[Rfam]
This 131-nucleotide RNA sequence from Pipistrellus kuhlii belongs to the Rfam family "Small nucleolar RNA SNORA65".
Nucleotides: 131
Stems, first nucleotide, its partner, number of pairs: 005048006017036005023031001064124003068121001069119002072116001074113002079109002082106001084104001089101003
Number, partner (000 for none) and nucleotide at each position: 001000c002000c003000c004000g005048u006047c007046a008045c009044u010043g011000c012000a013000u014000c015000u016000g017036a018035c019034c020033a021032c022000u023031u024000c025000u026000c027000u028000g029000u030000u031023g032021g033020u034019g035018g036017u037000g038000c039000a040000a041000u042000c043010c044009a045008g046007u047006g048005g049000u050000g051000g052000g053000c054000u055000g056000a057000a058000a059000c060000u061000a062000a063000g064124c065123c066122c067000c068121a069119g070118u071000u072116u073000a074113a075112g076000a077000a078000a079109c080108a081000u082106a083000u084104u085000c086000u087000u088000a089101u090100u091099c092000u093000u094000c095000a096000u097000a098000u099091g100090g101089a102000u103000g104084a105000c106082u107000c108080u109079g110000u111000g112075c113074u114000g115000a116072a117000c118070a119069c120000c121068u122066g123065g124064g125000a126000a127000c128000a129000a130000c131000c
The organism belongs to Pipistrellus, within Eukaryota.
The match comes from Rfam's covariance-model search (85 bits).
The family has 14 seed sequences and 1,089 matches in Rfam 15.1.
For this family Rfam cites "RNomics: an experimental approach that identifies 201 candidates for novel, small, non-messenger RNAs in mouse" (Huttenhofer et al., EMBO J, 2001).
Rfam links the family to the GO terms nucleolus and RNA processing.
The family is grouped with related families in Rfam's "SNORA65 clan".
About the family: U65 belongs to the H/ACA class of snoRNAs which are thought to guide the sites of modification of uridines to pseudouridines.